[Rfam]
RNA: SAM riboswitch aptamer (S box leader)
Organism: Arthrobacter sp. MN05-02
RNA sequence: UAACCAUCCCGAGCGGCCGAGAGACCUGGAUCGACGACGCCGCAGCAACCCUUCCCGUGUAGCAACGGGGAACGGUGCUACUGCCAGGACCGAUGGAGA
Numbered sequence: 001u002a003a004c005c006a007u008c009c010c011g012a013g014c015g016g017c018c019g020a021g022a023g024a025c026c027u028g029g030a031u032c033g034a035c036g037a038c039g040c041c042g043c044a045g046c047a048a049c050c051c052u053u054c055c056c057g058u059g060u061a062g063c064a065a066c067g068g069g070g071a072a073c074g075g076u077g078c079u080a081c082u083g084c085c086a087g088g089a090c091c092g093a094u095g096g097a098g099a
Stems, first nucleotide, its partner, number of pairs: 001099001004096005013043005021032002026087004044079004049075002052071006083091001